[Rfam]
The record is an 82-nucleotide RNA sequence from Camellia sinensis, which matches "Small nucleolar RNA Z102/R77" in Rfam.
Rfam 15.1 lists 1,346 matches to the family in 224 species.
It scores 43 bits against the family's covariance model.
The organism belongs to Camellia, within Eukaryota.
The base pairs follow the family's consensus structure, which was predicted with PFOLD.
Rfam classes the family as a C/D-box small nucleolar RNA.
RNA sequence: GAAUUAUUUGAUGUUGAUCUAAUAUUUGGUUUGAUAGCCCUGGUGAUGGCUAAAUUUAUAUAUUAUAUCUAUCUGAUCAUUC
Numbered sequence: 001g002a003a004u005u006a007u008u009u010g011a012u013g014u015u016g017a018u019c020u021a022a023u024a025u026u027u028g029g030u031u032u033g034a035u036a037g038c039c040c041u042g043g044u045g046a047u048g049g050c051u052a053a054a055u056u057u058a059u060a061u062a063u064u065a066u067a068u069c070u071a072u073c074u075g076a077u078c079a080u081u082c
Stems, first nucleotide, its partner, number of pairs: 002081003036051004